[Rfam]
RNA sequence: UCGUCGGUGCGCGGGAGCCCGGAACCGGAUCGGGCUGAGAGGGCAGUGACGCCGACCGCAGAACCUGAUCUGGGUCAUGCCAGCGAAGGGAGCACGGGUGGGUCACGA
Numbered sequence: 001u002c003g004u005c006g007g008u009g010c011g012c013g014g015g016a017g018c019c020c021g022g023a024a025c026c027g028g029a030u031c032g033g034g035c036u037g038a039g040a041g042g043g044c045a046g047u048g049a050c051g052c053c054g055a056c057c058g059c060a061g062a063a064c065c066u067g068a069u070c071u072g073g074g075u076c077a078u079g080c081c082a083g084c085g086a087a088g089g090g091a092g093c094a095c096g097g098g099u100g101g102g103u104c105a106c107g108a
Base pairs, nucleotide, nucleotide: 007095008094009093010092011059012058013057014056017035018034019033020032021031042053043052044051064089065088066087070083071082072081073080

A member of the RNA family "TPP riboswitch aptamer (THI element)" from Marmoricola endophyticus, 108 nucleotides long.
The base pairs follow the family's consensus structure, which is taken from published work.
Rfam's curators write: Vitamin B(1) in its active form thiamin pyrophosphate (TPP) is an essential coenzyme that is synthesised by coupling of pyrimidine and thiazole moieties in bacteria.